The family of this 98-nucleotide RNA is "SAM-I/IV (S-adenosyl methionine) riboswitch aptamer". Pairs were carried over by alignment from the consensus structure, which is taken from published work.
RNA sequence: AUAAAUUAUCAAGAAUCUCAAUAAAAGGAGAUAGCAACCUGCAAUAACAAGCAAGGUGCUAAAUAGAUAAGCCAAGUAAUUGGAACAAAUGUUAAAUC
Dot-bracket structure: .....(((((....(((((........)))))(((..(((((..[[[[[.)).))).))).....))))).((((....))))......]]]]]....